[Rfam]
The record is a 47-nucleotide RNA sequence from Pseudonocardia ammonioxydans, which matches "L31-Actinobacteria ribosomal protein leader" in Rfam. A search with the family's covariance model found it, with a score of 44 bits.
RNA sequence: CCGGCUCCGGUUCACCCGCACGGGCAGUGCUCGCGGGACCCGGCGCC
Numbered sequence: 001c002c003g004g005c006u007c008c009g010g011u012u013c014a015c016c017c018g019c020a021c022g023g024g025c026a027g028u029g030c031u032c033g034c035g036g037g038a039c040c041c042g043g044c045g046c047c
Base pairs, nucleotide, nucleotide: 003047004046005045007043008042009041010040015037016036017035018034019033
The family's RNA type in Rfam is cis-regulatory leader.